Rfam assigns this 102-nucleotide RNA from Aureibacillus halotolerans to the family "Purine riboswitch aptamer".
The match comes from Rfam's covariance-model search (85 bits).
RNA sequence: UAAAACGUAAUACCUAUCACUCGUAUAAUUUUAGGAAUAUGGCCUAAACGUUUCUACCAGGAUACCGUAAAUACCCUGACUAUGAGUGAGCAAUGGUUGCCA
Numbered sequence: 001u002a003a004a005a006c007g008u009a010a011u012a013c014c015u016a017u018c019a020c021u022c023g024u025a026u027a028a029u030u031u032u033a034g035g036a037a038u039a040u041g042g043c044c045u046a047a048a049c050g051u052u053u054c055u056a057c058c059a060g061g062a063u064a065c066c067g068u069a070a071a072u073a074c075c076c077u078g079a080c081u082a083u084g085a086g087u088g089a090g091c092a093a094u095g096g097u098u099g100c101c102a
Base pairs, nucleotide, nucleotide: 018088019087020086021085022084023083024082025081030048031047032046033045034044035043058078059077060076061075063073064072